Rfam assigns this 183-nucleotide RNA from Anopheles gambiae to the family "drz-agam-2-2 ribozyme".
A reference for the family is Webb et al. (2009), "Widespread occurrence of self-cleaving ribozymes", Science.

[Rfam]
RNA sequence: AGAAAUACUUCGCUGAUGUGGGGGUGGGUCUGAAGCUUCUAGAAGAUUAACAUAGGCUCUCCAUCUCCUACUCCUACAAAAUACGUCCCCGUCGUAGAGAACGGUAACAUGCCUCUCAAUUAUCCAAGCUUGGGUAUACCCAACCCCUUGGGAGGAUGGGUAGCAUAGGCUAAAUUGAGAGAG
Numbered sequence: 001a002g003a004a005a006u007a008c009u010u011c012g013c014u015g016a017u018g019u020g021g022g023g024g025u026g027g028g029u030c031u032g033a034a035g036c037u038u039c040u041a042g043a044a045g046a047u048u049a050a051c052a053u054a055g056g057c058u059c060u061c062c063a064u065c066u067c068c069u070a071c072u073c074c075u076a077c078a079a080a081a082u083a084c085g086u087c088c089c090c091g092u093c094g095u096a097g098a099g100a101a102c103g104g105u106a107a108c109a110u111g112c113c114u115c116u117c118a119a120u121u122a123u124c125c126a127a128g129c130u131u132g133g134g135u136a137u138a139c140c141c142a143a144c145c146c147c148u149u150g151g152g153a154g155g156a157u158g159g160g161u162a163g164c165a166u167a168g169g170c171u172a173a174a175u176u177g178a179g180a181g182a183g
Base pairs, nucleotide, nucleotide: 010101014097021068022067023065024064025063026062027061028060030056031055072183074181075180077179080176081175082174083095084094085093087104088103108168109166110165111164112163115160116159117158122157123156124155125154130143131142132141133140134139145152146151